[Rfam]
Nucleotides: 084
Base pairs, nucleotide, nucleotide: 001084002083003082004081005080006079010075011074012073017072018071019070020069021068022067023066024065025064027060031057032056034054038052039051040049041048
Number, partner (000 for none) and nucleotide at each position: 001084a002083c003082a004081c005080a006079c007000a008000c009000a010075c011074a012073c013000a014000c015000a016000c017072a018071c019070a020069c021068a022067c023066a024065c025064a026000c027060c028000c029000u030000u031057a032056u033000a034054u035000g036000u037000a038052a039051a040049a041048g042000c043000g044000u045000c046000u047000a048041u049040u050000a051039u052038u053000g054034g055000a056032a057031u058000g059000u060027g061000a062000c063000c064025u065024g066023u067022g068021u069020g070019u071018g072017u073012g074011u075010g076000u077000g078000u079006g080005u081004g082003u083002g084001u
The record is an 84-nucleotide sequence from Clarias magur, which matches "Small nucleolar RNA SNORD86" in Rfam. U86 belongs to the C/D family of snoRNAs. It is the human orthologue of Xenopus laevis U86 and has no identified RNA target. The source organism's lineage runs through Eukaryota, Bilateria, Euteleostomi, Otomorpha and Clarias.